[Rfam]
RNA: Small nucleolar RNA SNORA79
RNA sequence: UGAUGGCUGUUCUUCUCACUGCCUGGAGCCUUAGGUAGUGGGAUUUUAAUACAUCAUAUAUCUAAACUGACUUGUCUUCACUCAGGGCACUAUAGGGAUGAGUUGGUUAUGGGGCAGCACCUACUGAUUUUUGCAGAGUCAAAACAACU
Numbered sequence: 001u002g003a004u005g006g007c008u009g010u011u012c013u014u015c016u017c018a019c020u021g022c023c024u025g026g027a028g029c030c031u032u033a034g035g036u037a038g039u040g041g042g043a044u045u046u047u048a049a050u051a052c053a054u055c056a057u058a059u060a061u062c063u064a065a066a067c068u069g070a071c072u073u074g075u076c077u078u079c080a081c082u083c084a085g086g087g088c089a090c091u092a093u094a095g096g097g098a099u100g101a102g103u104u105g106g107u108u109a110u111g112g113g114g115c116a117g118c119a120c121c122u123a124c125u126g127a128u129u130u131u132u133g134c135a136g137a138g139u140c141a142a143a144a145c146a147a148c149u
Base pairs, nucleotide, nucleotide: 001056002055003054004053005052008049014043015042016041017040018039020037021036022035023034069140070139071138072137073136082127083126084125085124087120090117091116098110099109100108
Dot-bracket structure: (((((..(.....(((((.((((..........)))).))))).....)..)))))............(((((........((((.(..((......(((.......))).....))..)...))))........))))).........